[Rfam]
This 187-nucleotide RNA from Atopostipes suicloacalis belongs to the Rfam family "6S / SsrS RNA". Rfam classes the family as a non-coding RNA gene. It scores 70 bits against the family's covariance model. From the family's description: E. coli 6S RNA was the first non coding RNA to be sequenced, but its function was unknown until recently. It consists of 184 nucleotides that fold into an extended hairpin structure with a large single-stranded internal bulge. The 6S RNA specifically associates with RNA polymerase holoenzyme containing the sigma70 specificity factor. Taxonomically the source falls in Atopostipes suicloacalis (Bacteria, Bacillota, Bacilli, Carnobacteriaceae).
RNA sequence: UGAUAUCUGAUGUGUACGCGAUACCUCAUAAUGCGUGAACCCUACAAGUCAUUUAUAUAAGGGAUUCUAAUAAGAGAAACAAUGACAAGCCUUUUCACUUGGAAGUCAAAGUAGCUCUUUGUGAAGCCCACCUGCAGAUAGCGGGUUCAAAAGUACAAGGUAACCAAACGGCACGAUCGGAUAUCCU
Numbered sequence: 001u002g003a004u005a006u007c008u009g010a011u012g013u014g015u016a017c018g019c020g021a022u023a024c025c026u027c028a029u030a031a032u033g034c035g036u037g038a039a040c041c042c043u044a045c046a047a048g049u050c051a052u053u054u055a056u057a058u059a060a061g062g063g064a065u066u067c068u069a070a071u072a073a074g075a076g077a078a079a080c081a082a083u084g085a086c087a088a089g090c091c092u093u094u095u096c097a098c099u100u101g102g103a104a105g106u107c108a109a110a111g112u113a114g115c116u117c118u119u120u121g122u123g124a125a126g127c128c129c130a131c132c133u134g135c136a137g138a139u140a141g142c143g144g145g146u147u148c149a150a151a152a153g154u155a156c157a158a159g160g161u162a163a164c165c166a167a168a169c170g171g172c173a174c175g176a177u178c179g180g181a182u183a184u185c186c187u
Stems, first nucleotide, its partner, number of pairs: 002185010012174004017170002032155003036149006061129003065125003070120001072119005079112001085106002090102002